[Rfam]
RNA sequence: UUCGCAGAAGAGAUGAAAUUAUUACGGAUGUUGAUGAGCGUAAGCUCGCGCGUCCGAGAGCGCAUAACUCAUGUGGAUUACUCCGUUGCCUUCCUGCUGACCAUCCCU
Numbered sequence: 001u002u003c004g005c006a007g008a009a010g011a012g013a014u015g016a017a018a019u020u021a022u023u024a025c026g027g028a029u030g031u032u033g034a035u036g037a038g039c040g041u042a043a044g045c046u047c048g049c050g051c052g053u054c055c056g057a058g059a060g061c062g063c064a065u066a067a068c069u070c071a072u073g074u075g076g077a078u079u080a081c082u083c084c085g086u087u088g089c090c091u092u093c094c095u096g097c098u099g100a101c102c103a104u105c106c107c108u
Stems, first nucleotide, its partner, number of pairs: 004106001025085004

The family of this 108-nucleotide RNA from Scleroderma citrinum is "Small nucleolar RNA Z13/snr52". Pairs were carried over by alignment from the consensus structure, which was predicted with PFOLD. Lineage of the source: Eukaryota > Opisthokonta > Boletales > Sclerodermataceae > Scleroderma citrinum. Its family is annotated with RNA processing and nucleolus in the Gene Ontology. The match comes from Rfam's covariance-model search (54 bits). By type it is a C/D-box small nucleolar RNA.